[Rfam]
RNA sequence: UGUUUUCCUCCGUUCCAUAAUAUAAAAACGUUUUUGACACUAGCGUAGUGUUAAAAACGUUUUUAUAUUAUGGGACGGAGGGAGUAC
Numbered sequence: 001u002g003u004u005u006u007c008c009u010c011c012g013u014u015c016c017a018u019a020a021u022a023u024a025a026a027a028a029c030g031u032u033u034u035u036g037a038c039a040c041u042a043g044c045g046u047a048g049u050g051u052u053a054a055a056a057a058c059g060u061u062u063u064u065a066u067a068u069u070a071u072g073g074g075a076c077g078g079a080g081g082g083a084g085u086a087c
Stems, first nucleotide, its partner, number of pairs: 004084002007081005013075005019069023
MIR1120/MIR1122 microRNA precursor family: an 87-nucleotide RNA from Triticum turgidum. Pairs were carried over by alignment from the consensus structure, which was predicted with RNAalifold. Lineage of the source: Eukaryota > Streptophyta > Euphyllophyta > Magnoliopsida > Triticum turgidum.